Rfam assigns this 372-nucleotide RNA from Micrococcus endophyticus to the family "transfer-messenger RNA".
[Rfam]
RNA sequence: GGGGCCGAUCGGUUUCGACGGUGUGUGUCGCGUCGGGAGAAGCGGGCCGAGGAUGCAGAGUCAUCUCGUCAAACGCUCUCUGCAAACCAAUAAGUGCCGAAUCCAAGCGCACUGACUUCGCUCUCGCUGCCUGAUCAGUGAUCGAGUCCGUCAGCCCGGGAAUGCUGUCGUCCCGGACCCUGGCGUCAUCUAGAUAGCCACUGGGCAUCACCCUUGUCGGGGGUCGUGAUGCCGACAUCAAUCCGACUGGGCCCGGGUUGUCCGCCCGUCUGCGGGACGGACAGGGCCGAGCAACACCCGUAGCAGACUGCGCCCGGAGAAGACCUGGCAACACCUCAUCGGACGCGGGUUCAAUUCCCGCCGGCUCCACUC
Numbered sequence: 001g002g003g004g005c006c007g008a009u010c011g012g013u014u015u016c017g018a019c020g021g022u023g024u025g026u027g028u029c030g031c032g033u034c035g036g037g038a039g040a041a042g043c044g045g046g047c048c049g050a051g052g053a054u055g056c057a058g059a060g061u062c063a064u065c066u067c068g069u070c071a072a073a074c075g076c077u078c079u080c081u082g083c084a085a086a087c088c089a090a091u092a093a094g095u096g097c098c099g100a101a102u103c104c105a106a107g108c109g110c111a112c113u114g115a116c117u118u119c120g121c122u123c124u125c126g127c128u129g130c131c132u133g134a135u136c137a138g139u140g141a142u143c144g145a146g147u148c149c150g151u152c153a154g155c156c157c158g159g160g161a162a163u164g165c166u167g168u169c170g171u172c173c174c175g176g177a178c179c180c181u182g183g184c185g186u187c188a189u190c191u192a193g194a195u196a197g198c199c200a201c202u203g204g205g206c207a208u209c210a211c212c213c214u215u216g217u218c219g220g221g222g223g224u225c226g227u228g229a230u231g232c233c234g235a236c237a238u239c240a241a242u243c244c245g246a247c248u249g250g251g252c253c254c255g256g257g258u259u260g261u262c263c264g265c266c267c268g269u270c271u272g273c274g275g276g277a278c279g280g281a282c283a284g285g286g287c288c289g290a291g292c293a294a295c296a297c298c299c300g301u302a303g304c305a306g307a308c309u310g311c312g313c314c315c316g317g318a319g320a321a322g323a324c325c326u327g328g329c330a331a332c333a334c335c336u337c338a339u340c341g342g343a344c345g346c347g348g349g350u351u352c353a354a355u356u357c358c359c360g361c362c363g364g365c366u367c368c369a370c371u372c
Stems, first nucleotide, its partner, number of pairs: 001368007019341005025335001032329006043316005048068005054084007124141006149185006156176006164198006204233008216247005250288005256282001258280002261277003268308004345361005
The family's RNA type in Rfam is non-coding RNA gene. The organism belongs to Micrococcus, within Bacteria. The family's consensus secondary structure is taken from published work.